[Rfam]
RNA sequence: ACAGACUCACCUUGCACCCAGCCUGUCCCAGGCGGGUGCUUUUUUCAUCUGCCAGAGAAACUUUCCGGGGUACUGUGGCCACUUUGACCUCUCGGGUGAUGCAGCUACCUGAGGGCACAGGG
Numbered sequence: 001a002c003a004g005a006c007u008c009a010c011c012u013u014g015c016a017c018c019c020a021g022c023c024u025g026u027c028c029c030a031g032g033c034g035g036g037u038g039c040u041u042u043u044u045u046c047a048u049c050u051g052c053c054a055g056a057g058a059a060a061c062u063u064u065c066c067g068g069g070g071u072a073c074u075g076u077g078g079c080c081a082c083u084u085u086g087a088c089c090u091c092u093c094g095g096g097u098g099a100u101g102c103a104g105c106u107a108c109c110u111g112a113g114g115g116c117a118c119a120g121g122g
Stems, first nucleotide, its partner, number of pairs: 002051004014039006023031003064113001066111004073104005080098005